[Rfam]
RNA sequence: AGCAAAGCUUUGAGAAAGAGGAGUAACAACACAGAAACUUUUCAGAGAGCUGGUGGCGGUGAGAAUCAGCAGGGGAUGUGUUGCGAAUGGACUUUCGAGCAAAAUGUUGAACAAGUAGUAGGCAUUUUCGGGAACUCCCGUUAUAGAGUAAGGUCGUUGAUAGACGACUGAUAAGAGGAAAGAAUUUCUUUCAAACUUGAGGUGGCACCGUGAUCAUUCGCCCUCAAA
Numbered sequence: 001a002g003c004a005a006a007g008c009u010u011u012g013a014g015a016a017a018g019a020g021g022a023g024u025a026a027c028a029a030c031a032c033a034g035a036a037a038c039u040u041u042u043c044a045g046a047g048a049g050c051u052g053g054u055g056g057c058g059g060u061g062a063g064a065a066u067c068a069g070c071a072g073g074g075g076a077u078g079u080g081u082u083g084c085g086a087a088u089g090g091a092c093u094u095u096c097g098a099g100c101a102a103a104a105u106g107u108u109g110a111a112c113a114a115g116u117a118g119u120a121g122g123c124a125u126u127u128u129c130g131g132g133a134a135c136u137c138c139c140g141u142u143a144u145a146g147a148g149u150a151a152g153g154u155c156g157u158u159g160a161u162a163g164a165c166g167a168c169u170g171a172u173a174a175g176a177g178g179a180a181a182g183a184a185u186u187u188c189u190u191u192c193a194a195a196c197u198u199g200a201g202g203u204g205g206c207a208c209c210g211u212g213a214u215c216a217u218u219c220g221c222c223c224u225c226a227a228a
Base pairs, nucleotide, nucleotide: 007100008099015095016094017093018092027083028082029081030080031079038073039072040071049070050069051068052067053066054065102127103126104125105124106123107122108121129140130139131138178192179191180190181189182188183187199225200224201223202222210221211220212219213218
This 228-nucleotide sequence from Candidatus Enterococcus dunnyi belongs to the Rfam family "T-box leader". It is annotated as a cis-regulatory leader. The organism belongs to Enterococcus, within Bacteria. The match comes from Rfam's covariance-model search (128 bits).